[Rfam]
RNA sequence: GGAUGUGAGGGCGAUCUGGCUGCGACAUCUGUCACCCCAUUGAUCGCCAGGGUUGAUUCGGCUGAUCUGGCUGGCUAGGCGGGUGUCCCCUUCCUCCCUCACCGCUCCAUGUGCGUCCCUCCCGAAGCUGCGCGCUCGGUCGAAGAGGACGACCUUCCCCGAUAGAGGCGUACCGUUCUUCGGUCAAGGGUAUAUGAGUAGCUGCGCUCCCCUGCUAGAACAAGCUCCCAAGGUCCAUUUGUAUUUCACUUCAGCUACUAAAAUGGGCCUUACCUCCUGUUAGGGGCAGGCA
Numbered sequence: 001g002g003a004u005g006u007g008a009g010g011g012c013g014a015u016c017u018g019g020c021u022g023c024g025a026c027a028u029c030u031g032u033c034a035c036c037c038c039a040u041u042g043a044u045c046g047c048c049a050g051g052g053u054u055g056a057u058u059c060g061g062c063u064g065a066u067c068u069g070g071c072u073g074g075c076u077a078g079g080c081g082g083g084u085g086u087c088c089c090c091u092u093c094c095u096c097c098c099u100c101a102c103c104g105c106u107c108c109a110u111g112u113g114c115g116u117c118c119c120u121c122c123c124g125a126a127g128c129u130g131c132g133c134g135c136u137c138g139g140u141c142g143a144a145g146a147g148g149a150c151g152a153c154c155u156u157c158c159c160c161g162a163u164a165g166a167g168g169c170g171u172a173c174c175g176u177u178c179u180u181c182g183g184u185c186a187a188g189g190g191u192a193u194a195u196g197a198g199u200a201g202c203u204g205c206g207c208u209c210c211c212c213u214g215c216u217a218g219a220a221c222a223a224g225c226u227c228c229c230a231a232g233g234u235c236c237a238u239u240u241g242u243a244u245u246u247c248a249c250u251u252c253a254g255c256u257a258c259u260a261a262a263a264u265g266g267g268c269c270u271u272a273c274c275u276c277c278u279g280u281u282a283g284g285g286g287c288a289g290g291c292a
Base pairs, nucleotide, nucleotide: 001108002107003106005102006101007100008099009098010097011096013093014092018090019089024087025086026085027084028083029082030081031080032079033078035074036073037070038069039068042067043066044065045064046062047061048060117170118168119167120166121165122139123138124137125136127135128134140162141161142160147158148157149156201255202254203253208248213243214242215241222240223239224238